This 359-nucleotide part of an RNA from uncultured archaeon A07HR60 belongs to the Rfam family "Archaeal small subunit ribosomal RNA". The base pairs follow the family's consensus structure, which is taken from published work. A search with the family's covariance model found it, with a score of 1538 bits.
[Rfam]
RNA sequence: GGCCUAAAGCGUCCGUAGCUGGCCGCACAAGUCCGUCGGGAAAUCCGCCCGCUCAACGGGCGGCCGUCCGGCGGAACCUGUGUGGCUUGGGACCGGGAGGCCUGAGGGGUACGAUCGGGGUAGGAGUGAAAUCCUGUAAUCCCGCUCGGACCGCCGAUGGGGAAACCACCUCAGGAGAACGGAUCCGACAGUGAGGGACGAAAGCCAGGGUCUCGAACCGGAUUAGAUACCCGGGUAGUCCUGGCCGUAAACGAUGCUUGUUAGGUGUGACUCCCACUACGAGUGGGUGUUGUGCCGUAGGGAAGCCGCUAAACAAGCCGCCUGGGAAGUACGUCUGCAAGGAUGAAACUUAAAGGAAU
Numbered sequence: 001g002g003c004c005u006a007a008a009g010c011g012u013c014c015g016u017a018g019c020u021g022g023c024c025g026c027a028c029a030a031g032u033c034c035g036u037c038g039g040g041a042a043a044u045c046c047g048c049c050c051g052c053u054c055a056a057c058g059g060g061c062g063g064c065c066g067u068c069c070g071g072c073g074g075a076a077c078c079u080g081u082g083u084g085g086c087u088u089g090g091g092a093c094c095g096g097g098a099g100g101c102c103u104g105a106g107g108g109g110u111a112c113g114a115u116c117g118g119g120g121u122a123g124g125a126g127u128g129a130a131a132u133c134c135u136g137u138a139a140u141c142c143c144g145c146u147c148g149g150a151c152c153g154c155c156g157a158u159g160g161g162g163a164a165a166c167c168a169c170c171u172c173a174g175g176a177g178a179a180c181g182g183a184u185c186c187g188a189c190a191g192u193g194a195g196g197g198a199c200g201a202a203a204g205c206c207a208g209g210g211u212c213u214c215g216a217a218c219c220g221g222a223u224u225a226g227a228u229a230c231c232c233g234g235g236u237a238g239u240c241c242u243g244g245c246c247g248u249a250a251a252c253g254a255u256g257c258u259u260g261u262u263a264g265g266u267g268u269g270a271c272u273c274c275c276a277c278u279a280c281g282a283g284u285g286g287g288u289g290u291u292g293u294g295c296c297g298u299a300g301g302g303a304a305g306c307c308g309c310u311a312a313a314c315a316a317g318c319c320g321c322c323u324g325g326g327a328a329g330u331a332c333g334u335c336u337g338c339a340a341g342g343a344u345g346a347a348a349c350u351u352a353a354a355g356g357a358a359u
Stems, first nucleotide, its partner, number of pairs: 001322003009319001011199004016193001018192003022086007030079002032075009045063007090186003093182003101175007108152002112148003116144004123134003160167002204245006214238001218234004256318006264296008273287005300307002324351003333344004